[Rfam]
RNA sequence: AAUUGAAAAAGGCAAACCCAUUGAAAAGUGGCGACGCAAAACUAAAGGGGCUAAGAUCUGUUGAUUAAGCCAGCCAGUUACCGAU
Numbered sequence: 001a002a003u004u005g006a007a008a009a010a011g012g013c014a015a016a017c018c019c020a021u022u023g024a025a026a027a028g029u030g031g032c033g034a035c036g037c038a039a040a041a042c043u044a045a046a047g048g049g050g051c052u053a054a055g056a057u058c059u060g061u062u063g064a065u066u067a068a069g070c071c072a073g074c075c076a077g078u079u080a081c082c083g084a085u
Stems, first nucleotide, its partner, number of pairs: 012037002018031005040079004047075002049071003056065003
RNA: c-di-GMP-I riboswitch aptamer